RNA sequence: GCCACGGCUAGGUUUAGCGGCUGAACGCCGGCUUCCCGAGCCGGCCCGCCGUGGCAUUUUCUGAAUUCGGG
Numbered sequence: 001g002c003c004a005c006g007g008c009u010a011g012g013u014u015u016a017g018c019g020g021c022u023g024a025a026c027g028c029c030g031g032c033u034u035c036c037c038g039a040g041c042c043g044g045c046c047c048g049c050c051g052u053g054g055c056a057u058u059u060u061c062u063g064a065a066u067u068c069g070g071g
Base pairs, nucleotide, nucleotide: 001055002054003053004052005051006050007049008048011022012021013020014019027045028044029043030042031041035071036070037069038068039067040066
Dot-bracket structure: ((((((((..((((....))))....(((((...[[[[[[)))))..))))))))..........]]]]]]